This 185-nucleotide RNA belongs to the Rfam family "Bacteroidales-1 6S-Bacteroidales RNA suggested". It is annotated as a small RNA. On this family, see Ryan et al., Nat Commun 2020: "A high-resolution transcriptome map identifies small RNA regulation of metabolism in the gut microbe Bacteroides thetaiotaomicron". Bacteroidales-1 was first reported in a comparative genomics-based approach of genome and metagenome sequences from Weinberg et al. 2010 In a high-resolution transcriptome map study of Bacteroides thetaiotaomicron, Ryan et al. 2020 report this sRNA as 6S RNA homologue of Bacteroides, in the study they obtain evidence of small product RNAs (pRNAs) related to 6S function.
RNA sequence: GGUUGUAUCGGUUCGAUUGGGAUACUCAUCAAAUUAAAUUGAAAACCGAGAAUGUUUCUCUUGUUGAUGGCGGGCCACAUAAAGCGCUUGGCGCCUAAGCAUUAUGCCGGUGGAUUACAAAGACGGAGAACACUCACCUCUUUUAUAGAAGGAGUUUUCAUCACAUCAUCGUUACGAUCCCCUUU
Numbered sequence: 001g002g003u004u005g006u007a008u009c010g011g012u013u014c015g016a017u018u019g020g021g022a023u024a025c026u027c028a029u030c031a032a033a034u035u036a037a038a039u040u041g042a043a044a045a046c047c048g049a050g051a052a053u054g055u056u057u058c059u060c061u062u063g064u065u066g067a068u069g070g071c072g073g074g075c076c077a078c079a080u081a082a083a084g085c086g087c088u089u090g091g092c093g094c095c096u097a098a099g100c101a102u103u104a105u106g107c108c109g110g111u112g113g114a115u116u117a118c119a120a121a122g123a124c125g126g127a128g129a130a131c132a133c134u135c136a137c138c139u140c141u142u143u144u145a146u147a148g149a150a151g152g153a154g155u156u157u158u159c160a161u162c163a164c165a166u167c168a169u170c171g172u173u174a175c176g177a178u179c180c181c182c183u184u185u
Base pairs, nucleotide, nucleotide: 054131055130056129058128059127061126062125063124064123065122068119069118075113076112077111078110084094085093086092099107100106101105